Notes:
MIR7504 microRNA precursor family: a 124-nucleotide RNA from Gossypium laxum. Taxonomically the source falls in Gossypium (Eukaryota, Viridiplantae, eudicotyledons, Malvales). The base pairs follow the family's consensus structure, which was predicted with RNAalifold.

[Rfam]
RNA sequence: AAUAAGAAAAUGACAAAUCAUAUUUUUCCUCCUAAUUUUUAGCUUUUUCCUCUUGAAAAAAAUUCAAAUCCAACUAAAAAUGUUAAAAAUGAGGAGGAAAAAUAUAUUUUGUCAUUCCCUUAUU
Dot-bracket structure: ((((((..(((((((((..((((((((.(((((.(((((.((..((((............................))))..)).))))).))))).))))))))..)))))))))..))))))
Numbered sequence: 001a002a003u004a005a006g007a008a009a010a011u012g013a014c015a016a017a018u019c020a021u022a023u024u025u026u027u028c029c030u031c032c033u034a035a036u037u038u039u040u041a042g043c044u045u046u047u048u049c050c051u052c053u054u055g056a057a058a059a060a061a062a063u064u065c066a067a068a069u070c071c072a073a074c075u076a077a078a079a080a081u082g083u084u085a086a087a088a089a090u091g092a093g094g095a096g097g098a099a100a101a102a103u104a105u106a107u108u109u110u111g112u113c114a115u116u117c118c119c120u121u122a123u124u
Stems, first nucleotide, its partner, number of pairs: 001124006009116009020105008029096005035090005041084002045080004
Its family is annotated with miRNA-mediated post-transcriptional gene silencing and RISC complex in the Gene Ontology. The match comes from Rfam's covariance-model search (97 bits).